[Rfam]
RNA: MIR812 microRNA precursor family
RNA sequence: UUUAAGUGCAGUUGUAGAUUUCCGUGUCCAACGUUUAACCGUCCGCCUUAUUUAAAAUUUUAUAGAAAAAUUAAAAAAAUAGUCACAUAAAGUAUUAUUCAUGUUUUAUCAUCUAAUAACAAUAAAAAUACUAAUCACAAAUUUUUUUCUAAAUAAGACGGUCGGACAAAUGUUAGACCUUAACAGU
Numbered sequence: 001u002u003u004a005a006g007u008g009c010a011g012u013u014g015u016a017g018a019u020u021u022c023c024g025u026g027u028c029c030a031a032c033g034u035u036u037a038a039c040c041g042u043c044c045g046c047c048u049u050a051u052u053u054a055a056a057a058u059u060u061u062a063u064a065g066a067a068a069a070a071u072u073a074a075a076a077a078a079a080u081a082g083u084c085a086c087a088u089a090a091a092g093u094a095u096u097a098u099u100c101a102u103g104u105u106u107u108a109u110c111a112u113c114u115a116a117u118a119a120c121a122a123u124a125a126a127a128a129u130a131c132u133a134a135u136c137a138c139a140a141a142u143u144u145u146u147u148u149c150u151a152a153a154u155a156a157g158a159c160g161g162u163c164g165g166a167c168a169a170a171u172g173u174u175a176g177a178c179c180u181u182a183a184c185a186g187u
Stems, first nucleotide, its partner, number of pairs: 027177002030174003034170003039165003043161003047157007